RNA sequence: UUGGCUUAAACUCAAUGAGUAAGGAAACUAACGUCUUACCUGACAAGUAGGACUGCCUAUUGGGUCUAGUGAUCCAUGGGUUUAUAAUUUAUGACGGAGGUGGAAUGGCCUUUUUUUAGAAACCCACUACUUUAGGGUGACUAAAUGGGGCCGGUCCCCGCC
Numbered sequence: 001u002u003g004g005c006u007u008a009a010a011c012u013c014a015a016u017g018a019g020u021a022a023g024g025a026a027a028c029u030a031a032c033g034u035c036u037u038a039c040c041u042g043a044c045a046a047g048u049a050g051g052a053c054u055g056c057c058u059a060u061u062g063g064g065u066c067u068a069g070u071g072a073u074c075c076a077u078g079g080g081u082u083u084a085u086a087a088u089u090u091a092u093g094a095c096g097g098a099g100g101u102g103g104a105a106u107g108g109c110c111u112u113u114u115u116u117u118a119g120a121a122a123c124c125c126a127c128u129a130c131u132u133u134a135g136g137g138u139g140a141c142u143a144a145a146u147g148g149g150g151c152c153g154g155u156c157c158c159c160g161c162c
Base pairs, nucleotide, nucleotide: 005023006022007021008020033053034052035051036050037049038048039047055081056080057079058078059077060076099162100161101160102159103158107156108155109154110153113148114147116144117143118142119141122138123137124136125135

The family of this 162-nucleotide RNA from Peronospora effusa is "U12 minor spliceosomal RNA". It scores 69 bits against the family's covariance model. The family's RNA type in Rfam is spliceosomal small nuclear RNA.